This 177-nucleotide RNA from Faecalibaculum rodentium belongs to the Rfam family "Group II catalytic intron D1-D4-3". A search with the family's covariance model found it, with a score of 120 bits. Rfam describes the family as follows. Group II introns are found in rRNA, tRNA and mRNA of organelles in fungi, plants and protists, and also in mRNA in bacteria.

RNA sequence: UCACUGGUAACAGGAGUUCUGAAAGAAGCCCGGCGGCAAAGUUCCGGCCUGAGGAACACGAACCGCAUAUAAGGCCACAGACGGAGACGAGCGUGCGAAACAGCGCAAAGUCGUAAUAGUUGCGGAUGACUGUCUGGGGUAAAUGCGGCAGGUAUAUGGAAUGAAGGAUGUAUGAGC
Numbered sequence: 001u002c003a004c005u006g007g008u009a010a011c012a013g014g015a016g017u018u019c020u021g022a023a024a025g026a027a028g029c030c031c032g033g034c035g036g037c038a039a040a041g042u043u044c045c046g047g048c049c050u051g052a053g054g055a056a057c058a059c060g061a062a063c064c065g066c067a068u069a070u071a072a073g074g075c076c077a078c079a080g081a082c083g084g085a086g087a088c089g090a091g092c093g094u095g096c097g098a099a100a101c102a103g104c105g106c107a108a109a110g111u112c113g114u115a116a117u118a119g120u121u122g123c124g125g126a127u128g129a130c131u132g133u134c135u136g137g138g139g140u141a142a143a144u145g146c147g148g149c150a151g152g153u154a155u156a157u158g159g160a161a162u163g164a165a166g167g168a169u170g171u172a173u174g175a176g177c
Base pairs, nucleotide, nucleotide: 001016004013005012006011028177029176031174032173037167041162042161043160044159045158046157047153048152049151050150051149063148064147065146066145067144068143074140075139076138078136079135080134081133082132083131084130086112087111088110091106092105093104094103